The family of this 122-nucleotide RNA from Thermomonospora cellulosilytica is "c-di-AMP riboswitch aptamer (ydaO/yuaA leader)".
From the family's description: This family represents a conserved RNA structure found upstream of the ydaO and yuaA genes in Bacillus subtilis and related genes in other bacteria. The ydaO/yuaA element is thought to act as a genetic 'off' switch for the ydaO and yuaA genes in its native state. It is believed that the element may be triggered during osmotic shock leading to activation of ydaO, a predicted amino acid transporter gene, and members of the yuaA-yubG operon which code for KtrA and KtrB K+ transporters.
RNA sequence: CAGCCGGCGUCGCCGGAACGCCGGGGACCCGACGCGCAACGGGGUGAAUCCGUCCGCGGGCGGUAGGGCGCCUCCACGCCCGAACCCGACAGCUAACCCGGUAGGCGGUCCAUGGAGAGAUA
Numbered sequence: 001c002a003g004c005c006g007g008c009g010u011c012g013c014c015g016g017a018a019c020g021c022c023g024g025g026g027a028c029c030c031g032a033c034g035c036g037c038a039a040c041g042g043g044g045u046g047a048a049u050c051c052g053u054c055c056g057c058g059g060g061c062g063g064u065a066g067g068g069c070g071c072c073u074c075c076a077c078g079c080c081c082g083a084a085c086c087c088g089a090c091a092g093c094u095a096a097c098c099c100g101g102u103a104g105g106c107g108g109u110c111c112a113u114g115g116a117g118a119g120a121u122a
Base pairs, nucleotide, nucleotide: 003106004105005104009019010018020102021101022100023099024098025097030041031040042087043086044085050063051062052061053060066081067080068079069078
The base pairs follow the family's consensus structure.